[Rfam]
RNA: pan motif
Organism: Tepidibacillus fermentans
RNA sequence: GAGGUAGUAUCGUCAAGAACUACACUCAGCUUUUACAUUUUUACAUUUGAACAAUUGAAUGAACUAUUGAUAUUCUGCUCUGAGCCUUAAUGGACCGAGACAGAAGG
Numbered sequence: 001g002a003g004g005u006a007g008u009a010u011c012g013u014c015a016a017g018a019a020c021u022a023c024a025c026u027c028a029g030c031u032u033u034u035a036c037a038u039u040u041u042u043a044c045a046u047u048u049g050a051a052c053a054a055u056u057g058a059a060u061g062a063a064c065u066a067u068u069g070a071u072a073u074u075c076u077g078c079u080c081u082g083a084g085c086c087u088u089a090a091u092g093g094a095c096c097g098a099g100a101c102a103g104a105a106g107g
Base pairs, nucleotide, nucleotide: 001027002026003025004023005022006021007020008019010018011017075103076102077101078099079098080097082095085093086092